[Rfam]
The family of this 99-nucleotide RNA from Ruminococcus sp. CAG:624 is "skipping-rope RNA".
RNA sequence: GUUAUUUGAGGUGGAGGAGUUCGUACAAUCCACACGCCGCUGGUACUGACAAGGAGAAAUCCUGAGAGACGCAGGAGAGUUGUACGCCUGCCAAAUAAC
Numbered sequence: 001g002u003u004a005u006u007u008g009a010g011g012u013g014g015a016g017g018a019g020u021u022c023g024u025a026c027a028a029u030c031c032a033c034a035c036g037c038c039g040c041u042g043g044u045a046c047u048g049a050c051a052a053g054g055a056g057a058a059a060u061c062c063u064g065a066g067a068g069a070c071g072c073a074g075g076a077g078a079g080u081u082g083u084a085c086g087c088c089u090g091c092c093a094a095a096u097a098a099c
Stems, first nucleotide, its partner, number of pairs: 001099008011033005023085005035066001036044003071091005

Overview: It scores 43 bits against the family's covariance model. The family's RNA type in Rfam is small RNA. Lineage of the source: Bacteria > Bacillati > Clostridia > Oscillospiraceae > Ruminococcus.